[Rfam]
RNA sequence: ACAGUCUGAAAAUCACUUUGGGUCUACUGUGGCCCCUGGUGCCAUAACUGUGCCAACAGCAGAGGGAGCAUUAAACCCACUGCCCACGGAAAACUGUGGGGAGAGAUACCCAUAUUCCUAUAAUC
Numbered sequence: 001a002c003a004g005u006c007u008g009a010a011a012a013u014c015a016c017u018u019u020g021g022g023u024c025u026a027c028u029g030u031g032g033c034c035c036c037u038g039g040u041g042c043c044a045u046a047a048c049u050g051u052g053c054c055a056a057c058a059g060c061a062g063a064g065g066g067a068g069c070a071u072u073a074a075a076c077c078c079a080c081u082g083c084c085c086a087c088g089g090a091a092a093a094c095u096g097u098g099g100g101g102a103g104a105g106a107u108a109c110c111c112a113u114a115u116u117c118c119u120a121u122a123a124u125c
Base pairs, nucleotide, nucleotide: 006050008048010045014041015040016039021034022033023032024031065118067116068115070113071112078105080103081102085098086097087096